[Rfam]
Nucleotides: 111
Stems, first nucleotide, its partner, number of pairs: 007105007020054006056091003059087002063085003069079002
Number, partner (000 for none) and nucleotide at each position: 001000g002000a003000u004000c005000u006000c007105c008104c009103u010102g011101c012100g013099g014000g015000a016000g017000a018000g019000a020054g021053c022052g023051a024050u025049u026000c027000g028000c029000c030000a031000g032000a033000g034000c035000c036000u037000u038000g039000c040000g041000g042000c043000g044000c045000c046000g047000g048000c049025a050024a051023u052022c053021g054020u055000c056091g057090c058089c059087g060086a061000a062000g063085g064084c065083g066000c067000a068000a069079c070078c071000g072000g073000c074000c075000c076000c077000c078070g079069g080000a081000a082000a083065c084064g085063c086060u087059c088000a089058g090057g091056c092000a093000g094000a095000a096000g097000g098000a099013c100012c101011g102010c103009a104008g105007g106000a107000u108000a109000a110000u111000a